[Rfam]
RNA sequence: GUGCGGACUGACGAACCGCUAUCGCAGCUCACGCACAGAGGAAGUUCCUUUCCUCUUUUUCUGCUGUGGGGAAAGUCCCCGGAGACUCCGCAGAGUCUUACGACCCUCGAGCCUUUUAGAUCUUCCGAAGUGAACGACCCUCCCAAGGAAAGCGACCGCUUCUAAGCACGGCAGGUUCACUCUAGUUCGCUUCACGCUCUUACGGGCAAGGAAGUGUGGCUUGGGGGAGGGCGAUGUGCUUCCUGACUCCUUGUCUUGUGUUCUUGGCUUGACUGACUGGAACCGACGGGUUGUCUCGCCUUUGCCCUCUCUGCGACCGCCCUCUGAUUCUUAUGCCCUUCGUCUUCCCCAGGGUAUGGAGGUUACGCGAAGACAUGAGCGUCCUUCAUACUUGGGCGUUGUGGCGUUCAUGUUUCAUUGGGCUAUUGUUCCUCAUAGACACAGUUAUGCGGUUGCUUGAUCGGACACUCUCGUGUUCCUUUCAUUCUACAGAAUGGGGCUUACCAUCAGCCCGCA
Numbered sequence: 001g002u003g004c005g006g007a008c009u010g011a012c013g014a015a016c017c018g019c020u021a022u023c024g025c026a027g028c029u030c031a032c033g034c035a036c037a038g039a040g041g042a043a044g045u046u047c048c049u050u051u052c053c054u055c056u057u058u059u060u061c062u063g064c065u066g067u068g069g070g071g072a073a074a075g076u077c078c079c080c081g082g083a084g085a086c087u088c089c090g091c092a093g094a095g096u097c098u099u100a101c102g103a104c105c106c107u108c109g110a111g112c113c114u115u116u117u118a119g120a121u122c123u124u125c126c127g128a129a130g131u132g133a134a135c136g137a138c139c140c141u142c143c144c145a146a147g148g149a150a151a152g153c154g155a156c157c158g159c160u161u162c163u164a165a166g167c168a169c170g171g172c173a174g175g176u177u178c179a180c181u182c183u184a185g186u187u188c189g190c191u192u193c194a195c196g197c198u199c200u201u202a203c204g205g206g207c208a209a210g211g212a213a214g215u216g217u218g219g220c221u222u223g224g225g226g227g228a229g230g231g232c233g234a235u236g237u238g239c240u241u242c243c244u245g246a247c248u249c250c251u252u253g254u255c256u257u258g259u260g261u262u263c264u265u266g267g268c269u270u271g272a273c274u275g276a277c278u279g280g281a282a283c284c285g286a287c288g289g290g291u292u293g294u295c296u297c298g299c300c301u302u303u304g305c306c307c308u309c310u311c312u313g314c315g316a317c318c319g320c321c322c323u324c325u326g327a328u329u330c331u332u333a334u335g336c337c338c339u340u341c342g343u344c345u346u347c348c349c350c351a352g353g354g355u356a357u358g359g360a361g362g363u364u365a366c367g368c369g370a371a372g373a374c375a376u377g378a379g380c381g382u383c384c385u386u387c388a389u390a391c392u393u394g395g396g397c398g399u400u401g402u403g404g405c406g407u408u409c410a411u412g413u414u415u416c417a418u419u420g421g422g423c424u425a426u427u428g429u430u431c432c433u434c435a436u437a438g439a440c441a442c443a444g445u446u447a448u449g450c451g452g453u454u455g456c457u458u459g460a461u462c463g464g465a466c467a468c469u470c471u472c473g474u475g476u477u478c479c480u481u482u483c484a485u486u487c488u489a490c491a492g493a494a495u496g497g498g499g500c501u502u503a504c505c506a507u508c509a510g511c512c513c514g515c516a
Base pairs, nucleotide, nucleotide: 002516003515004514005513006512008510009509010508011507014454015453016452017451018450019449022069023068024067025066026065027064028063038055039054040053041052042051043050044049073502074501075500077499078498079497080496092107093106095104096103097102348395349394351392352391357388358387359386360385365382366381367380368379458484459483460482

The family of this 516-nucleotide RNA from Thelephora terrestris is "RNase MRP".
Taxonomically the source falls in Thelephora (Eukaryota, Opisthokonta, Dikarya, Basidiomycota).
Rfam classes the family as a ribozyme.
RNase MRP is an enzymatically active ribonucleoprotein with two distinct roles in eukaryotes.
The family is grouped with related families in Rfam's "RNaseP clan".